[Rfam]
Annotation: This 68-nucleotide RNA from Alteribacillus iranensis belongs to the Rfam family "Bacillaceae-1 RNA". It is annotated as a small RNA.
RNA sequence: UAAUAUGGAUCUUUUGCUAAAAGCGCAAACGUCCUGUUUGCAACGCAAAAGUCAACGCGUUCUGCGUA
Numbered sequence: 001u002a003a004u005a006u007g008g009a010u011c012u013u014u015u016g017c018u019a020a021a022a023g024c025g026c027a028a029a030c031g032u033c034c035u036g037u038u039u040g041c042a043a044c045g046c047a048a049a050a051g052u053c054a055a056c057g058c059g060u061u062c063u064g065c066g067u068a
Stems, first nucleotide, its partner, number of pairs: 011051007026040005055067004